Small nucleolar RNA SNORA51: a 131-nucleotide sequence from Castor canadensis. Its family is annotated with RNA processing and nucleolus in the Gene Ontology. The source organism's lineage runs through Eukaryota, Mammalia, Glires, Rodentia and Castor. It is annotated as an H/ACA-box small nucleolar RNA. Rfam 15.1 lists 2,121 matches to the family in 210 species. ACA51 is a member of the H/ACA class of snoRNA that guide the sites of modification of uridines to pseudouridines.
[Rfam]
RNA sequence: AACCUUUUGGUGUUUACCACAGUCUGUGUUUUCACACUGAUAUAUAGAAACAGGAGGGAAAGUAAACCUACCCCAUAUACACUUCUGACCAGGCCAUAUGCCUGACCUGUAUUGUGAACGGGGAGACAUGG
Dot-bracket structure: ..((((((............(....((((....))))...)..........)))))).............((((.(........(.(..(((((.....)))))..).)........).))))........